[Rfam]
RNA sequence: UGUUGCAAGUUUUAGAUCAUAGCAGAAGUGCUACAGCACAACUCUGUCAGAUUGUAACAAAUCUGCGAAUUCUGCU
Numbered sequence: 001u002g003u004u005g006c007a008a009g010u011u012u013u014a015g016a017u018c019a020u021a022g023c024a025g026a027a028g029u030g031c032u033a034c035a036g037c038a039c040a041a042c043u044c045u046g047u048c049a050g051a052u053u054g055u056a057a058c059a060a061a062u063c064u065g066c067g068a069a070u071u072c073u074g075c076u
Base pairs, nucleotide, nucleotide: 014043015042017041021076022075023074024073025072026071027070028039029038030037048065049064050063051062052061053060
Rfam assigns this 76-nucleotide RNA sequence from Crocodylus porosus to the family "Mammalian CPEB3 ribozyme". The source organism's lineage runs through Eukaryota, Bilateria, Deuterostomia, Sauria and Crocodylus. Its family is annotated with RNA nuclease activity in the Gene Ontology. The match comes from Rfam's covariance-model search (38 bits).